[Rfam]
RNA sequence: UUUUAAGUAUAGGUAUGUCCCAUGCAAUUUUGGGGAUAUAGUUAUACUAAAU
Numbered sequence: 001u002u003u004u005a006a007g008u009a010u011a012g013g014u015a016u017g018u019c020c021c022a023u024g025c026a027a028u029u030u031u032g033g034g035g036a037u038a039u040a041g042u043u044a045u046a047c048u049a050a051a052u
Stems, first nucleotide, its partner, number of pairs: 006048007014040003018036004022031001
Dot-bracket structure: .....(((((((.(((.(((((........).)))).))).)))))))....
Source information:
A member of the RNA family "mir-1302 microRNA precursor family", 52 nucleotides long. A reference for the family is Morin et al. (2008), "Application of massively parallel sequencing to microRNA profiling and discovery in human embryonic stem cells", Genome Res. The family's consensus secondary structure was predicted with WAR.